RNA sequence: GGAACGUGUACGCGUUGCGGGGCAACGAUAGCAAAAGA
Numbered sequence: 001g002g003a004a005c006g007u008g009u010a011c012g013c014g015u016u017g018c019g020g021g022g023c024a025a026c027g028a029u030a031g032c033a034a035a036a037g038a
Base pairs, nucleotide, nucleotide: 005031013027014026015025016024017023018022
RNA: Selenocysteine insertion sequence 4
Organism: Lentibacillus kapialis